[Rfam]
RNA sequence: GCCCAGAUGAGCAUCGGUGGUCCGGUGUGCGGGCUUCAAACCCGUAGCUGAGAGUCAAGUGGUUCAUUCCACCUUCUGGGC
Numbered sequence: 001g002c003c004c005a006g007a008u009g010a011g012c013a014u015c016g017g018u019g020g021u022c023c024g025g026u027g028u029g030c031g032g033g034c035u036u037c038a039a040a041c042c043c044g045u046a047g048c049u050g051a052g053a054g055u056c057a058a059g060u061g062g063u064u065c066a067u068u069c070c071a072c073c074u075u076c077u078g079g080g081c
Base pairs, nucleotide, nucleotide: 001081002080003079004078005077006076007075009073012027013026014025015024016023017022028046029045030044031043032042033041059072060071061070062069
Rfam assigns this 81-nucleotide sequence from Trichonephila inaurata to the family "Selenocysteine transfer RNA". Pairs were carried over by alignment from the consensus structure, which is taken from published work. The organism belongs to Trichonephila inaurata, within Eukaryota. Rfam 15.1 lists 4,211 matches to the family in 3,344 species.